[Rfam]
The family of this 436-nucleotide part of an RNA from Neomoorella thermoacetica is "Bacterial large subunit ribosomal RNA". The base pairs follow the family's consensus structure, which is taken from published work.
RNA sequence: CUCCCCGAAAUAGCUUUAGGGCUAGCCUCAAGGAAAGACUAACGGAGGUAGAGCACUGAUAAGGCUAGGGGCCUUACCAGGUUACCGAACCUUUUCAAACUCCGAAUGCCGUUAAGUUAGUCCUUGGGAGUCAGACUGCGGGUGCAAAGAUCCGUAGUCGAGAGGGAAACAGCCCAGACCAACAGCUAAGGUCCCAAAAGACGGGCUAAGUGGAGAAGGAUGUAGAGUUGCAUAAACAACCAGGAUGUUGGCUUAGAAGCAGCCAUCAUUUAAAGAGUGCGUAAUAGCUCACUGGUCGAGUGACUCUGCGCCGAAAAUUCAACGGGGCUCAAGCCCGUUACCGAAGCUUUGGAUCUCGUAAAGAGGUGGUAGGGGAGCGUUCUGCAGGCAGCGAAGCUGUACCGGAAGGAGCAGUGGAGCCUGCAGAAGAGAGAAU
Numbered sequence: 001c002u003c004c005c006c007g008a009a010a011u012a013g014c015u016u017u018a019g020g021g022c023u024a025g026c027c028u029c030a031a032g033g034a035a036a037g038a039c040u041a042a043c044g045g046a047g048g049u050a051g052a053g054c055a056c057u058g059a060u061a062a063g064g065c066u067a068g069g070g071g072c073c074u075u076a077c078c079a080g081g082u083u084a085c086c087g088a089a090c091c092u093u094u095u096c097a098a099a100c101u102c103c104g105a106a107u108g109c110c111g112u113u114a115a116g117u118u119a120g121u122c123c124u125u126g127g128g129a130g131u132c133a134g135a136c137u138g139c140g141g142g143u144g145c146a147a148a149g150a151u152c153c154g155u156a157g158u159c160g161a162g163a164g165g166g167a168a169a170c171a172g173c174c175c176a177g178a179c180c181a182a183c184a185g186c187u188a189a190g191g192u193c194c195c196a197a198a199a200g201a202c203g204g205g206c207u208a209a210g211u212g213g214a215g216a217a218g219g220a221u222g223u224a225g226a227g228u229u230g231c232a233u234a235a236a237c238a239a240c241c242a243g244g245a246u247g248u249u250g251g252c253u254u255a256g257a258a259g260c261a262g263c264c265a266u267c268a269u270u271u272a273a274a275g276a277g278u279g280c281g282u283a284a285u286a287g288c289u290c291a292c293u294g295g296u297c298g299a300g301u302g303a304c305u306c307u308g309c310g311c312c313g314a315a316a317a318u319u320c321a322a323c324g325g326g327g328c329u330c331a332a333g334c335c336c337g338u339u340a341c342c343g344a345a346g347c348u349u350u351g352g353a354u355c356u357c358g359u360a361a362a363g364a365g366g367u368g369g370u371a372g373g374g375g376a377g378c379g380u381u382c383u384g385c386a387g388g389c390a391g392c393g394a395a396g397c398u399g400u401a402c403c404g405g406a407a408g409g410a411g412c413a414g415u416g417g418a419g420c421c422u423g424c425a426g427a428a429g430a431g432a433g434a435a436u
Base pairs, nucleotide, nucleotide: 001377002376003375004374005373006372011024012023013022014021015020026130027128028127029126030125031124032123033122036121037118038117039116040114041113042112043111044110045109051103052101053100057097058096059095061093062092063091064090068086069085070083071082072081073080074079134159135158136157137156138155139154140153141152142151143150164175165174166173179352180351181350182349184348185347186346190342191341192340199339201338202337203336204335205334206333218312219311222309223308224307225306226305227304228303229302230301231300239296240295241294242293243292245269246268247267250264251263252262270274275290279288280287353367354366355365356364357363378431380428381427382426383425384424385423386422387421388420389419396415397414398413399412400411402409403408
Dot-bracket structure: ((((((....(((((....))))).((((((((..((((((((((.....(((...(((.((((...(((((((....))))).))...)))).)))..)).).....)))))).)))..)))))))).)...((((((((((......))))))))))....(((......)))...((((.(((...(((......(.((((((...........((..((((((((((.......(((((.(((..(((.........)))..)))(...)(...((......)).).)))))...)))))))))).))....................))))))))))...)))))))(((((.....)))))....))))))(.((((((((((......(((((.((....)).)))))...))))))))))..).....